[Rfam]
This 45-nucleotide sequence from Neisseria weaveri belongs to the Rfam family "PreQ1 (pre queuosine) riboswitch aptamer". It scores 54 bits against the family's covariance model.
RNA sequence: UCUACUGUGGUUCGAAAACCUCCCACAUUAAAAAACUAAGGAAUU
Numbered sequence: 001u002c003u004a005c006u007g008u009g010g011u012u013c014g015a016a017a018a019c020c021u022c023c024c025a026c027a028u029u030a031a032a033a034a035a036c037u038a039a040g041g042a043a044u045u
Base pairs, nucleotide, nucleotide: 006027007026008025009024010023016037
The organism belongs to Neisseria, within Bacteria. The pairing is the family consensus, mapped onto this sequence. For this family Rfam cites "Identification of four genes necessary for biosynthesis of the modified nucleoside queuosine" (Reader et al., J Biol Chem, 2004).